[Rfam]
RNA: tRNA
Organism: Oscillatoria sp. FACHB-1406
RNA sequence: GGAGAGAUGGCCGAGCGGCUAAAGGCGCGAUCCUCGAAAGAUCGAUUGGAUUUAAUUCAUCCAACGGGGGUUCAAAUCCCCCUCUCUCCG
Numbered sequence: 001g002g003a004g005a006g007a008u009g010g011c012c013g014a015g016c017g018g019c020u021a022a023a024g025g026c027g028c029g030a031u032c033c034u035c036g037a038a039a040g041a042u043c044g045a046u047u048g049g050a051u052u053u054a055a056u057u058c059a060u061c062c063a064a065c066g067g068g069g070g071u072u073c074a075a076a077u078c079c080c081c082c083u084c085u086c087u088c089c090g
Base pairs, nucleotide, nucleotide: 001089002088003087004086005085006084007083010026011025012024028044029043030042031041032040066082067081068080069079070078